The record is a 400-nucleotide RNA sequence from Sulfitobacter sp. HI0023, which matches "Bacterial RNase P class A" in Rfam. Rfam classes the family as a ribozyme. Gene Ontology terms of the family: dimeric ribonuclease P complex, tRNA processing and ribonuclease P activity. The organism belongs to Sulfitobacter, within Bacteria.

RNA sequence: GCGGAAGGCUGGAUGACCGCGGCGGGGCCUGCCCCUGUCGAGGAAAGUCCGGACUCCGGGAAGGAACGGUGCCGGGUAACGCCCGGGCGGGGUAACCCGACGGACAGCGCCACAGAAAACAGACCGCCCCGGGCGGUGCCGGUUUGCCGGCAACACACGGGGUAAGGGUGAAACGGUGGGGUAAGAGCCCACCGCGCCGCUGGCAACAGGGGCGGCACGGCAAGCCCCACCGGGAGCAAUGCCAAAUAGGGACCGCGUGCCCGGAAACGGGCGGGGCCACUUCCGCCCCAGCAGGUCCGGGUUGGCAGCUGUAGCCGUAUCGGCAACGAUGCGGUCAGAGGAAUGGUCAUCCAAGGGGGCAACCCCUGGACAGAAUCCGGCUUACAGGCCUUCCGCGCAU
Numbered sequence: 001g002c003g004g005a006a007g008g009c010u011g012g013a014u015g016a017c018c019g020c021g022g023c024g025g026g027g028c029c030u031g032c033c034c035c036u037g038u039c040g041a042g043g044a045a046a047g048u049c050c051g052g053a054c055u056c057c058g059g060g061a062a063g064g065a066a067c068g069g070u071g072c073c074g075g076g077u078a079a080c081g082c083c084c085g086g087g088c089g090g091g092g093u094a095a096c097c098c099g100a101c102g103g104a105c106a107g108c109g110c111c112a113c114a115g116a117a118a119a120c121a122g123a124c125c126g127c128c129c130c131g132g133g134c135g136g137u138g139c140c141g142g143u144u145u146g147c148c149g150g151c152a153a154c155a156c157a158c159g160g161g162g163u164a165a166g167g168g169u170g171a172a173a174c175g176g177u178g179g180g181g182u183a184a185g186a187g188c189c190c191a192c193c194g195c196g197c198c199g200c201u202g203g204c205a206a207c208a209g210g211g212g213c214g215g216c217a218c219g220g221c222a223a224g225c226c227c228c229a230c231c232g233g234g235a236g237c238a239a240u241g242c243c244a245a246a247u248a249g250g251g252a253c254c255g256c257g258u259g260c261c262c263g264g265a266a267a268c269g270g271g272c273g274g275g276g277c278c279a280c281u282u283c284c285g286c287c288c289c290a291g292c293a294g295g296u297c298c299g300g301g302u303u304g305g306c307a308g309c310u311g312u313a314g315c316c317g318u319a320u321c322g323g324c325a326a327c328g329a330u331g332c333g334g335u336c337a338g339a340g341g342a343a344u345g346g347u348c349a350u351c352c353a354a355g356g357g358g359g360c361a362a363c364c365c366c367u368g369g370a371c372a373g374a375a376u377c378c379g380g381c382u383u384a385c386a387g388g389c390c391u392u393c394c395g396c397g398c399a400u
Base pairs, nucleotide, nucleotide: 001396002395003394004393005392006391007390008389009388010387011385012351013350014349015348016347017346018345020040021039022038023037024036025035026034027033045383046382047381049380050379051378052377053376054236055235056234057233063282064281067232068231069230070229071228072086073085074084075083076082087101088099089098090097091096102227103226107225108224109221110220111219124167125166126163127162128161129160130159131158133156175193176192177191178190179189180188194216195214196213197212198211200209201208202207240307241306242305243304250298251297252296253295254294274289275288276287278285315334316333317332318331319330320329321328322327